Bacterial large subunit ribosomal RNA: a 266-nucleotide part of an RNA from Candidatus Zinderia insecticola. Gene Ontology terms of the family: ribosome and structural constituent of ribosome.
RNA sequence: GGAAGUUUGAAAAGGGGCUGCUUCUAGUACGAGAGGACCGAAGUGGAUGAACCUCUAGUGUAUCGGUUGUUACGCCAGUAGCAUAGCCGAGUAGCCAAGUUCAGAAGAGAUAACCGCUGAAAGCAUCUAAGUGGGAAACUUUCCUUAAGAUAAGACUUCCCGAAAAUAAAUUUUUCCUAAAGGGUCGUUUUAGACUAAAACGUUGAUAGGUCAGGUGUGUAAGUAUAGUAAUAUAUUUAGCUAACUGAUACUAAUUUACCCGUGAG
Numbered sequence: 001g002g003a004a005g006u007u008u009g010a011a012a013a014g015g016g017g018c019u020g021c022u023u024c025u026a027g028u029a030c031g032a033g034a035g036g037a038c039c040g041a042a043g044u045g046g047a048u049g050a051a052c053c054u055c056u057a058g059u060g061u062a063u064c065g066g067u068u069g070u071u072a073c074g075c076c077a078g079u080a081g082c083a084u085a086g087c088c089g090a091g092u093a094g095c096c097a098a099g100u101u102c103a104g105a106a107g108a109g110a111u112a113a114c115c116g117c118u119g120a121a122a123g124c125a126u127c128u129a130a131g132u133g134g135g136a137a138a139c140u141u142u143c144c145u146u147a148a149g150a151u152a153a154g155a156c157u158u159c160c161c162g163a164a165a166a167u168a169a170a171u172u173u174u175u176c177c178u179a180a181a182g183g184g185u186c187g188u189u190u191u192a193g194a195c196u197a198a199a200a201c202g203u204u205g206a207u208a209g210g211u212c213a214g215g216u217g218u219g220u221a222a223g224u225a226u227a228g229u230a231a232u233a234u235a236u237u238u239a240g241c242u243a244a245c246u247g248a249u250a251c252u253a254a255u256u257u258a259c260c261c262g263u264g265a266g
Stems, first nucleotide, its partner, number of pairs: 001160008012146004018046007048103005056097001058095001063090005068083006107141003114134005163173003179263001182261004186202005207253003210249005217241001223236005